This 125-nucleotide RNA sequence from Caloramator mitchellensis belongs to the Rfam family "c-di-AMP riboswitch aptamer (ydaO/yuaA leader)".
RNA sequence: AUUCAAAAAGUGCCGAAUCCAAAAGGUACGGAGGAACCGUUUUUGGGGUGAAUCUGAAUUAACAGUAGGGAUUAUCCUUCUCCCGAACCCGUCAGCUAACUCCGGAGGCAUGGGAAGGAGAAAAG
Numbered sequence: 001a002u003u004c005a006a007a008a009a010g011u012g013c014c015g016a017a018u019c020c021a022a023a024a025g026g027u028a029c030g031g032a033g034g035a036a037c038c039g040u041u042u043u044u045g046g047g048g049u050g051a052a053u054c055u056g057a058a059u060u061a062a063c064a065g066u067a068g069g070g071a072u073u074a075u076c077c078u079u080c081u082c083c084c085g086a087a088c089c090c091g092u093c094a095g096c097u098a099a100c101u102c103c104g105g106a107g108g109c110a111u112g113g114g115a116a117g118g119a120g121a122a123a124a125g
Stems, first nucleotide, its partner, number of pairs: 011110004019026002029104005038045002046090003054065003068084004

Lineage of the source: Bacteria > Bacillati > Bacillota > Eubacteriales > Caloramator. A search with the family's covariance model found it, with a score of 101 bits.